[Rfam]
RNA: Small nucleolar RNA SNORA28
RNA sequence: AAGCAACACUCUGUGGCAGAUGAUGGGAGUUGUCUGACACAAUUUGAGCUUGCUAUAGCAAGAAAGUCUAACCUAUUCCAGUGUUCUCCUCAAUGAGACCAACUGUUAUAUAGACUUAAACAAC
Numbered sequence: 001a002a003g004c005a006a007c008a009c010u011c012u013g014u015g016g017c018a019g020a021u022g023a024u025g026g027g028a029g030u031u032g033u034c035u036g037a038c039a040c041a042a043u044u045u046g047a048g049c050u051u052g053c054u055a056u057a058g059c060a061a062g063a064a065a066g067u068c069u070a071a072c073c074u075a076u077u078c079c080a081g082u083g084u085u086c087u088c089c090u091c092a093a094u095g096a097g098a099c100c101a102a103c104u105g106u107u108a109u110a111u112a113g114a115c116u117u118a119a120a121c122a123a124c
Base pairs, nucleotide, nucleotide: 009048010047011046012041013040014039015038017036018035019034020033021032022031064117065116066115067114068113069112070111074110075109076108079105080104081103082102085098086097087096088095